[Rfam]
RNA: Bacterial large signal recognition particle RNA
Organism: Roseburia sp. OF03-24
RNA sequence: CCGAGCAGCCGGGGUGGUAGCGGUACCCUGAACCAGCAAUCCGCUAUAGCUGGGGUGAUGCCGAACGGAGGGUUGUCAGAUUGUGGAGCUGCCCUUCAUAAGUGGCGUUGAAGUUUGGGUCUUACGCAACAGGAAUCUGUGAACCGGGUCAGGUCAGGAAUGGAGCAGCCCUAAGCAGAAGCUCUUGUGUGCCGUAAGGGUGCCUGGGCCGAGUUAACUGUGGAGGUAACGUCUGUGGUCUGGAUUCGAUGGGAGGCGCUCGG
Numbered sequence: 001c002c003g004a005g006c007a008g009c010c011g012g013g014g015u016g017g018u019a020g021c022g023g024u025a026c027c028c029u030g031a032a033c034c035a036g037c038a039a040u041c042c043g044c045u046a047u048a049g050c051u052g053g054g055g056u057g058a059u060g061c062c063g064a065a066c067g068g069a070g071g072g073u074u075g076u077c078a079g080a081u082u083g084u085g086g087a088g089c090u091g092c093c094c095u096u097c098a099u100a101a102g103u104g105g106c107g108u109u110g111a112a113g114u115u116u117g118g119g120u121c122u123u124a125c126g127c128a129a130c131a132g133g134a135a136u137c138u139g140u141g142a143a144c145c146g147g148g149u150c151a152g153g154u155c156a157g158g159a160a161u162g163g164a165g166c167a168g169c170c171c172u173a174a175g176c177a178g179a180a181g182c183u184c185u186u187g188u189g190u191g192c193c194g195u196a197a198g199g200g201u202g203c204c205u206g207g208g209c210c211g212a213g214u215u216a217a218c219u220g221u222g223g224a225g226g227u228a229a230c231g232u233c234u235g236u237g238g239u240c241u242g243g244a245u246u247c248g249a250u251g252g253g254a255g256g257c258g259c260u261c262g263g
Stems, first nucleotide, its partner, number of pairs: 001263006008056003011029006018022001033053005061256002066251002070247005077242010090228002094225006102218002104215003113209008121198006127189002130187005136179005146171004154163003